This 55-nucleotide RNA from Musa balbisiana belongs to the Rfam family "Plastid-psbA-3 3UTR RNA". Pairs were carried over by alignment from the consensus structure, which was predicted with LocARNA. Rfam's curators write: Plastid psbA-3 is a non-coding RNA (ncRNA) present in plastids. It was identified in inverted repeat sequences in the 3 prime untranslate region (3UTR) of photosystem II quinone-binding protein (psbA). For this family Rfam cites "Retrograde signaling in plants: A critical review focusing on the GUN pathway and beyond" (Richter et al., Plant Commun, 2023). The organism belongs to Musa, within Eukaryota.
RNA sequence: AAAGUAGCAAUACCCUGUCUUGCUUUAGCAAGACAGGGGUAUUGCUACUUGUGGC
Number, nucleotide and partner (000 for none) at each position: 001a000002a050003a049004g048005u047006a046007g045008c044009a043010a042011u041012a040013c039014c038015c000016u000017g034018u033019c032020u031021u030022g029023c000024u000025u000026u000027a000028g000029c022030a021031a020032g019033a018034c017035a000036g000037g000038g014039g013040u012041a011042u010043u009044g008045c007046u006047a005048c004049u003050u002051g000052u000053g000054g000055c000